Rfam assigns this 496-nucleotide part of an RNA from Zygotorulaspora mrakii to the family "Eukaryotic large subunit ribosomal RNA". The match comes from Rfam's covariance-model search (3346 bits).
RNA sequence: CCUGCCGAAGUUUCCCUCAGGAUAGCAGAAGCUCGUAUCAGUUUUAUGAGGUAAAGCGAAUGAUUAGAGGUACUGGGGUUGAAAUGACCUUAACCUAUUCUCAAACUUUAAAUAUGUAAGAAGUCCUUGUUACUUAAUUGAACGUGGACAUUUGAAUGAAGAGCUUCUAGUGGGCCAUUUUUGGUAAGCAGAACUGGCGAUGCGGGAUGAACCGAACGUGGAGUUAAGGUGCCGGAAUACACGCUCAUCAGACACCACAAAAGGUGUUAGUUCAUCUAGACAGCCGGACGGUGGCCAUGGAAGUCGGAAUCCGCUAAGGAGUGUGUAACAACUCACCGGCCGAAUGAACUAGCCCUGAAAAUGGAUGGCGCUCAAGCGUGUUACCUAUACUCCACCGUCAGGGUUGAACGAAUUGUGCCCUGACGAGUAGGCAGGCGUGGAGGUCAGUGACGAAGCCCAGGCCGUAAGGCCGGGUCGAACGGCCUCUAGUGCAGAU
Numbered sequence: 001c002c003u004g005c006c007g008a009a010g011u012u013u014c015c016c017u018c019a020g021g022a023u024a025g026c027a028g029a030a031g032c033u034c035g036u037a038u039c040a041g042u043u044u045u046a047u048g049a050g051g052u053a054a055a056g057c058g059a060a061u062g063a064u065u066a067g068a069g070g071u072a073c074u075g076g077g078g079u080u081g082a083a084a085u086g087a088c089c090u091u092a093a094c095c096u097a098u099u100c101u102c103a104a105a106c107u108u109u110a111a112a113u114a115u116g117u118a119a120g121a122a123g124u125c126c127u128u129g130u131u132a133c134u135u136a137a138u139u140g141a142a143c144g145u146g147g148a149c150a151u152u153u154g155a156a157u158g159a160a161g162a163g164c165u166u167c168u169a170g171u172g173g174g175c176c177a178u179u180u181u182u183g184g185u186a187a188g189c190a191g192a193a194c195u196g197g198c199g200a201u202g203c204g205g206g207a208u209g210a211a212c213c214g215a216a217c218g219u220g221g222a223g224u225u226a227a228g229g230u231g232c233c234g235g236a237a238u239a240c241a242c243g244c245u246c247a248u249c250a251g252a253c254a255c256c257a258c259a260a261a262a263g264g265u266g267u268u269a270g271u272u273c274a275u276c277u278a279g280a281c282a283g284c285c286g287g288a289c290g291g292u293g294g295c296c297a298u299g300g301a302a303g304u305c306g307g308a309a310u311c312c313g314c315u316a317a318g319g320a321g322u323g324u325g326u327a328a329c330a331a332c333u334c335a336c337c338g339g340c341c342g343a344a345u346g347a348a349c350u351a352g353c354c355c356u357g358a359a360a361a362u363g364g365a366u367g368g369c370g371c372u373c374a375a376g377c378g379u380g381u382u383a384c385c386u387a388u389a390c391u392c393c394a395c396c397g398u399c400a401g402g403g404u405u406g407a408a409c410g411a412a413u414u415g416u417g418c419c420c421u422g423a424c425g426a427g428u429a430g431g432c433a434g435g436c437g438u439g440g441a442g443g444u445c446a447g448u449g450a451c452g453a454a455g456c457c458c459a460g461g462c463c464g465u466a467a468g469g470c471c472g473g474g475u476c477g478a479a480c481g482g483c484c485u486c487u488a489g490u491g492c493a494g495a496u
Base pairs, nucleotide, nucleotide: 001435002434003433004432005431006430011024013022014021015020027168028167029166030165031164032163033162042121043120044119045118046117047116048115054109055107056106061103062102063101066098068096069095070094074092075091076090077089078088080086123149124148125147126146128144129143130142131141174198175197176196177195179193180192181191182190183189203214204213205212218395219394220393221392222391224389228385229384230383237382239381242378243377244376262356263355264354266353267352268351269350270349271348272347273346274345275344283340284339285338286337287336289313290312291311295307296306314318319334323332324331396425397424398423399422400421401420402419403418404417436491438488439487440486441485442484443483444482445481447480448479455475456474461470462469463468
Pairs were carried over by alignment from the consensus structure, which is taken from published work. NCBI's taxonomy places the organism under Eukaryota, Ascomycota, Saccharomycetes, Saccharomycetales, Zygotorulaspora. Its family is annotated with ribosome and structural constituent of ribosome in the Gene Ontology.